[Rfam]
Source information: Shown here is a 159-nucleotide sequence from Callorhinus ursinus, a member of the family "U1 spliceosomal RNA". Rfam classes the family as a spliceosomal small nuclear RNA. The family's consensus secondary structure is taken from published work. The source organism's lineage runs through Eukaryota, Teleostomi, Dipnotetrapodomorpha, Pinnipedia and Callorhinus.
RNA sequence: CAAAUUAACUGUGGGGAGAUAACGUGAUCAUGAAAAUGGUUUUCCUAGGGCGUGGCUUAUCCCUUGCACUUAGGAUAUGGUGACCCCUCUGAUUUCCCCCAAUACAGAAACUUGACUGCAUAAUUUGUAGUGGUGCUAGACCAUGUUCAUGCUCUCCCA
Number, nucleotide and partner (000 for none) at each position: 001c000002a000003a000004a000005u000006u000007a000008a000009c000010u000011g000012u000013g116014g046015g045016g044017a043018g042019a041020u000021a040022a000023c038024g037025u036026g000027a000028u000029c000030a000031u000032g000033a000034a000035a000036a025037u024038g023039g000040u021041u019042u018043u017044c016045c015046u014047a088048g087049g086050g085051c000052g084053u000054g081055g000056c079057u000058u077059a076060u075061c074062c073063c000064u000065u000066g000067c000068a000069c000070u000071u000072a000073g062074g061075a060076u059077a058078u000079g056080g000081u054082g000083a000084c052085c050086c049087c048088u047089c000090u114091g113092a112093u110094u109095u108096c000097c107098c000099c000100c000101a000102a000103u000104a000105c000106a000107g097108a095109a094110a093111c000112u092113u091114g090115a000116c013117u000118g000119c000120a000121u000122a000123a000124u000125u000126u000127g000128u000129a000130g000131u000132g000133g000134u000135g158136c000137u000138a155139g154140a153141c000142c151143a150144u149145g000146u000147u000148c000149a144150u143151g142152c000153u140154c139155u138156c000157c000158c135159a000